[Rfam]
RNA sequence: AGAUGUGCUCGUAGAGUAACGAGCAGGGUAAACAAAAGAAAUGCUCAUUAAGA
Numbered sequence: 001a002g003a004u005g006u007g008c009u010c011g012u013a014g015a016g017u018a019a020c021g022a023g024c025a026g027g028g029u030a031a032a033c034a035a036a037a038g039a040a041a042u043g044c045u046c047a048u049u050a051a052g053a
Base pairs, nucleotide, nucleotide: 006025007024008023009022010021011020014046015045016044017043
Dot-bracket structure: .....((((((..[[[[..)))))).................]]]].......
Shown here is a 53-nucleotide RNA sequence, a member of the family "6A RNA". It is annotated as a small RNA.